This 318-nucleotide sequence from Bombus vosnesenskii belongs to the Rfam family "Arthropod 7SK RNA". It scores 144 bits against the family's covariance model. Pairs were carried over by alignment from the consensus structure, which is taken from published work.
[Rfam]
RNA sequence: GGAAGUGCGUGUGCUAGUGAUGGCACAACUGAACAUUGAUCGCUAACGUUAGAAAUAAGCAGAUCUGCUCAGUGGGUGUUGUCACGUGGUCGCUUCAAGUAGCUUGUGUCGGCUCCCGAUUGCGCGUGUAGGUUCGUGGUGCGUUUUUUAUAAUUCACCUCGGAUUUGCACGCCUGCACGGUUGAGUCUUUCACGUCGCUCCUCGAACUACCGCGAUUUCCAAAUUGGGGGGCAAUCGAAUAGGUCAGACGAGGUUAAAUAAAUUUAUCGCUUCCAUAUACAGGCACUGCAGGAUAAGCAGUAUGCCAUGUUUUUUUU
Dot-bracket structure: (((((((.........(((((.......(((..((..(((((((.............))).))))))..)))........))))).......................................................................................................................................................................................))))))).......((((((((.......)))))..)))...........
Numbered sequence: 001g002g003a004a005g006u007g008c009g010u011g012u013g014c015u016a017g018u019g020a021u022g023g024c025a026c027a028a029c030u031g032a033a034c035a036u037u038g039a040u041c042g043c044u045a046a047c048g049u050u051a052g053a054a055a056u057a058a059g060c061a062g063a064u065c066u067g068c069u070c071a072g073u074g075g076g077u078g079u080u081g082u083c084a085c086g087u088g089g090u091c092g093c094u095u096c097a098a099g100u101a102g103c104u105u106g107u108g109u110c111g112g113c114u115c116c117c118g119a120u121u122g123c124g125c126g127u128g129u130a131g132g133u134u135c136g137u138g139g140u141g142c143g144u145u146u147u148u149u150a151u152a153a154u155u156c157a158c159c160u161c162g163g164a165u166u167u168g169c170a171c172g173c174c175u176g177c178a179c180g181g182u183u184g185a186g187u188c189u190u191u192c193a194c195g196u197c198g199c200u201c202c203u204c205g206a207a208c209u210a211c212c213g214c215g216a217u218u219u220c221c222a223a224a225u226u227g228g229g230g231g232g233c234a235a236u237c238g239a240a241u242a243g244g245u246c247a248g249a250c251g252a253g254g255u256u257a258a259a260u261a262a263a264u265u266u267a268u269c270g271c272u273u274c275c276a277u278a279u280a281c282a283g284g285c286a287c288u289g290c291a292g293g294a295u296a297a298g299c300a301g302u303a304u305g306c307c308a309u310g311u312u313u314u315u316u317u318u
Stems, first nucleotide, its partner, number of pairs: 001275007017085005029072003034067002038065004042060003283307003286302005
Description
Its Rfam clan is "7SK clan". The source organism's lineage runs through Eukaryota, Opisthokonta, Insecta, Pterygota and Pyrobombus.